[Rfam]
RNA sequence: GCUGCCGUAGCUCAGUGGUAGAGCACUCCAUUGGUAAUGGAGAGGUCGACAGUUCAAUCCUGUCUGGCAGCA
Numbered sequence: 001g002c003u004g005c006c007g008u009a010g011c012u013c014a015g016u017g018g019u020a021g022a023g024c025a026c027u028c029c030a031u032u033g034g035u036a037a038u039g040g041a042g043a044g045g046u047c048g049a050c051a052g053u054u055c056a057a058u059c060c061u062g063u064c065u066g067g068c069a070g071c072a
Base pairs, nucleotide, nucleotide: 001071002070003069004068005067006066007065010024011023012022013021026042027041028040029039030038048064049063050062051061052060